[Rfam]
RNA sequence: CUGAUAUCACGCAAAGGGUGGACGUCUUCCCGGAACGAGCCCGUUUCUGCCAUGCUGGCAGAAAACGCGUGAAAGUCAG
Number, nucleotide and partner (000 for none) at each position: 001c079002u078003g077004a076005u075006a000007u072008c071009a070010c069011g068012c067013a000014a000015a000016g042017g041018g040019u000020g000021g000022a000023c037024g036025u035026c000027u033028u000029c000030c000031c000032g000033g027034a000035a025036c024037g023038a000039g000040c018041c017042c016043g000044u000045u063046u062047c061048u060049g059050c058051c057052a056053u000054g000055c000056u052057g051058g050059c049060a048061g047062a046063a045064a000065a000066c000067g012068c011069g010070u009071g008072a007073a000074a000075g005076u004077c003078a002079g001
The record is a 79-nucleotide RNA, which matches "L4-Archaeoglobi ribosomal protein leades" in Rfam.
The base pairs follow the family's consensus structure, which is taken from published work.